[Rfam]
RNA sequence: UCUUUCGAAGUUUUCCUCAAGAUAGCUUGAGCCCGCGAGCAAGUUCUAUAGGGUAAAGCCAAUGAUUAGAGGCAUCAGGGGCGCAAUGCCCUUGACCUAUUCUCAAACUUUAACUAGGUAGGACAACAAGACUGCUUUAUAGAGCCACACCACAAAAUCGAGAGCUCCAAGUAGGCCAUUUUUAGUCAGCAGAACUAAUGAUGCAAGAUAAACCAGAAGCUGGGUUAUGGUGCCUAUUUGCACGCUAACCUAGAUCCCAUAAAGGGCACAAAGGGUCUUGGUCAAUUAAGACAACAGGACGGUGGUCAUGGAAGUCGAAAUCCACUAAGGAGUUUGUAACAACUCAUCUGCCGAAUAAACUAGCCCCCGAAAAUGGAUGGCAUUAAAGCACGCGACCUAUACCCGAUCAUUAGGGCAAGAGCCAGGCCUCGAUGAGUAGGAGGGCAAGACGAUCACUACAAAACCUUGAGCGUGAGCUCGAGCGGAGCGUCCAUCGGUAGAGAU
Numbered sequence: 001u002c003u004u005u006c007g008a009a010g011u012u013u014u015c016c017u018c019a020a021g022a023u024a025g026c027u028u029g030a031g032c033c034c035g036c037g038a039g040c041a042a043g044u045u046c047u048a049u050a051g052g053g054u055a056a057a058g059c060c061a062a063u064g065a066u067u068a069g070a071g072g073c074a075u076c077a078g079g080g081g082c083g084c085a086a087u088g089c090c091c092u093u094g095a096c097c098u099a100u101u102c103u104c105a106a107a108c109u110u111u112a113a114c115u116a117g118g119u120a121g122g123a124c125a126a127c128a129a130g131a132c133u134g135c136u137u138u139a140u141a142g143a144g145c146c147a148c149a150c151c152a153c154a155a156a157a158u159c160g161a162g163a164g165c166u167c168c169a170a171g172u173a174g175g176c177c178a179u180u181u182u183u184a185g186u187c188a189g190c191a192g193a194a195c196u197a198a199u200g201a202u203g204c205a206a207g208a209u210a211a212a213c214c215a216g217a218a219g220c221u222g223g224g225u226u227a228u229g230g231u232g233c234c235u236a237u238u239u240g241c242a243c244g245c246u247a248a249c250c251u252a253g254a255u256c257c258c259a260u261a262a263a264g265g266g267c268a269c270a271a272a273g274g275g276u277c278u279u280g281g282u283c284a285a286u287u288a289a290g291a292c293a294a295c296a297g298g299a300c301g302g303u304g305g306u307c308a309u310g311g312a313a314g315u316c317g318a319a320a321u322c323c324a325c326u327a328a329g330g331a332g333u334u335u336g337u338a339a340c341a342a343c344u345c346a347u348c349u350g351c352c353g354a355a356u357a358a359a360c361u362a363g364c365c366c367c368c369g370a371a372a373a374u375g376g377a378u379g380g381c382a383u384u385a386a387a388g389c390a391c392g393c394g395a396c397c398u399a400u401a402c403c404c405g406a407u408c409a410u411u412a413g414g415g416c417a418a419g420a421g422c423c424a425g426g427c428c429u430c431g432a433u434g435a436g437u438a439g440g441a442g443g444g445c446a447a448g449a450c451g452a453u454c455a456c457u458a459c460a461a462a463a464c465c466u467u468g469a470g471c472g473u474g475a476g477c478u479c480g481a482g483c484g485g486a487g488c489g490u491c492c493a494u495c496g497g498u499a500g501a502g503a504u
Base pairs, nucleotide, nucleotide: 001444002443003442004441005440006439011024013022014021027169029167030166031165032164044123045122046121047120048119049118056111057109058108063105064104065103068100070098071097072096075095076094077093078092079091080090082088130146132144133143175199178196180194181193182192183191219407221405222404223403225401229397230396231395238394240393244389245388264368265367266366278363279362280361281360282359285356286355295350296349297348298347301323302322306318307317325329330345335342408434409433410432411431413429414428415427416426448495449494451492454489456487464482469478470477471476

Eukaryotic large subunit ribosomal RNA: a 504-nucleotide part of an RNA from Cucumis melo. Lineage of the source: Eukaryota > Viridiplantae > Spermatophyta > Mesangiospermae > Cucumis melo subsp. agrestis. A search with the family's covariance model found it, with a score of 2129 bits. Pairs were carried over by alignment from the consensus structure, which is taken from published work.